Rfam assigns this 91-nucleotide RNA sequence from Streptococcus merionis to the family "NiCo-AnGGAG riboswitch aptamer". Its Rfam clan is "NiCo_riboswitches". Taxonomically the source falls in Streptococcus merionis (Bacteria, Bacillota, Lactobacillales, Streptococcaceae). Gene Ontology term of the family: metal ion binding. Nico riboswitches are selective metalloregulatory riboswitches that recognice Ni2+ and Co2+ metals. NiCo-AnGGAG is a variant of Nico riboswitch, with a change in position 87, from G to A.
RNA sequence: AAGAUGAACAAGCGGUGGUCUGACCAUGCAGCCGGGCCUUCAAGUCUGAAGGCAGCAGUAUAAGUACGAUGAGUGCGUAUCUGUGAGACAG
Numbered sequence: 001a002a003g004a005u006g007a008a009c010a011a012g013c014g015g016u017g018g019u020c021u022g023a024c025c026a027u028g029c030a031g032c033c034g035g036g037c038c039u040u041c042a043a044g045u046c047u048g049a050a051g052g053c054a055g056c057a058g059u060a061u062a063a064g065u066a067c068g069a070u071g072a073g074u075g076c077g078u079a080u081c082u083g084u085g086a087g088a089c090a091g
Stems, first nucleotide, its partner, number of pairs: 005090002012032002014029001015027005036053007055084004060080003064076004